[Rfam]
RNA sequence: ACAUGGGGACGCAUCAAUGGAGGGUCCUUCUCUGGGGGCCUCUCAUGGUACACCCGUGCCAGAGGAGCGUGCAGCCCGGAACCUUCGCCCAGACUCUUCACUGAUGGGCCGUGAGCACUGAAGGAGGCUCUACAGUG
Dot-bracket structure: .(((((.(......(.((((.(((((.........)).))).)))).)..).)).)))..............((((......(....(.(.(.((..........)).).)...)....).....))))........

A member of the RNA family "Small nucleolar RNA SNORA42/SNORA80 family" from Ursus maritimus, 137 nucleotides long. The literature on the family includes a 2006 paper in RNA by Schattner et al., "A computational screen for mammalian pseudouridylation guide H/ACA RNAs". From the family's description: The members of this family belong to the H/ACA class of snoRNAs that guide the sites of modification of uridines to pseudouridines. Its family is annotated with nucleolus and RNA processing in the Gene Ontology. Rfam classes the family as an H/ACA-box small nucleolar RNA.